[Rfam]
RNA sequence: GGCGAUAAACGCGCACGGAAUAAGCGGAUCGGACCCGGGGGCGGUACCCGGCGGCUCCACCAAUCACCCUUGUUGGGGGCGGAGGGGGCCGAAACAGGAUCGACGAACGUGUAAAGGUGAUUGCUUUCGCUCGGUGAGGUACCACCGUUACCGGUCCAAAAGUACAGUUGCCAACAACAACCGUGCUCCGGUGGCUCUGGCUGCGUAA
Numbered sequence: 001g002g003c004g005a006u007a008a009a010c011g012c013g014c015a016c017g018g019a020a021u022a023a024g025c026g027g028a029u030c031g032g033a034c035c036c037g038g039g040g041g042c043g044g045u046a047c048c049c050g051g052c053g054g055c056u057c058c059a060c061c062a063a064u065c066a067c068c069c070u071u072g073u074u075g076g077g078g079g080c081g082g083a084g085g086g087g088g089c090c091g092a093a094a095c096a097g098g099a100u101c102g103a104c105g106a107a108c109g110u111g112u113a114a115a116g117g118u119g120a121u122u123g124c125u126u127u128c129g130c131u132c133g134g135u136g137a138g139g140u141a142c143c144a145c146c147g148u149u150a151c152c153g154g155u156c157c158a159a160a161a162g163u164a165c166a167g168u169u170g171c172c173a174a175c176a177a178c179a180a181c182c183g184u185g186c187u188c189c190g191g192u193g194g195c196u197c198u199g200g201c202u203g204c205g206u207a208a
Base pairs, nucleotide, nucleotide: 001131002130003129004128005127014119015118016117025109026108029106030105031104035051036050037049038048039047052091053090054089055088056087057086058085132147133146134145135144
permuted transfer-messenger RNA: a 208-nucleotide RNA from Haematobacter massiliensis. It scores 147 bits against the family's covariance model. About the family: Bacterial tmRNA, also known as 10Sa RNA or SsrA, is named for its dual tRNA and mRNA-like properties. On this family, see Williams and Bartel, RNA 1996: "Phylogenetic analysis of tmRNA secondary structure". The family's consensus secondary structure is taken from published work. The source organism's lineage runs through Bacteria, Pseudomonadati, Alphaproteobacteria, Paracoccaceae and Haematobacter.